[Rfam]
Source information:
Shown here is a 128-nucleotide RNA from Bagarius yarrelli, a member of the family "Small nucleolar RNA SNORA49". The organism belongs to Bagarius, within Eukaryota. Rfam describes the family as follows. The snoRNA ACA49 has no identified RNA target. NB genomic sequence 1-nt different from published. Rfam classes the family as an H/ACA-box small nucleolar RNA. Rfam 15.1 lists 722 matches to the family in 550 species. Rfam links the family to the GO terms nucleolus and RNA processing.
RNA sequence: CCGCCCCCUCCUUACUCCAGUCACACUGACUCUGGUGCGGUCUGGCAUUGACGGGGGAAACAUCAGACGCUUCGUUUCACACACUUUCACUGUGUAGUCAGUGCAGGAUGAGUGAUGGAGCGAACAUG
Number, nucleotide and partner (000 for none) at each position: 001c000002c000003g000004c057005c056006c055007c054008c053009u000010c000011c050012u000013u000014a000015c000016u000017c045018c044019a043020g042021u000022c040023a000024c037025a036026c035027u034028g000029a000030c000031u000032c000033u000034g027035g026036u025037g024038c000039g000040g022041u000042c020043u019044g018045g017046c000047a000048u000049u000050g011051a000052c000053g008054g007055g006056g005057g004058a000059a000060a000061c000062a000063u000064c000065a000066g000067a000068c122069g121070c120071u000072u118073c117074g000075u000076u000077u000078c000079a000080c000081a000082c000083a000084c106085u105086u000087u000088c103089a102090c101091u100092g000093u000094g000095u000096a000097g000098u000099c000100a091101g090102u089103g088104c000105a085106g084107g000108a000109u000110g000111a000112g000113u000114g000115a000116u000117g073118g072119a000120g070121c069122g068123a000124a000125c000126a000127u000128g000